[Rfam]
Overview
A member of the RNA family "mir-2807 microRNA precursor family" from Bombyx mori, 84 nucleotides long. NCBI's taxonomy places the organism under Eukaryota, Bilateria, Pancrustacea, Aparaglossata, Bombyx. For this family Rfam cites "MicroRNAs of Bombyx mori identified by Solexa sequencing" (Liu et al., BMC Genomics, 2010).
RNA sequence: UUAACUCAAUUUUAUAUGCAGUUGGAACGUUUGUCUCCGUUUGAAGUUAGGGGCGCUGUUCUAGCUGCUUACAAAUAUGAGUUA
Numbered sequence: 001u002u003a004a005c006u007c008a009a010u011u012u013u014a015u016a017u018g019c020a021g022u023u024g025g026a027a028c029g030u031u032u033g034u035c036u037c038c039g040u041u042u043g044a045a046g047u048u049a050g051g052g053g054c055g056c057u058g059u060u061c062u063a064g065c066u067g068c069u070u071a072c073a074a075a076u077a078u079g080a081g082u083u084a
Base pairs, nucleotide, nucleotide: 008078011075012074013073015071016070018068020066021065022064023063024062025061026060027059028058029057034052035051036050039047040046
Its family is annotated with miRNA-mediated post-transcriptional gene silencing and RISC complex in the Gene Ontology.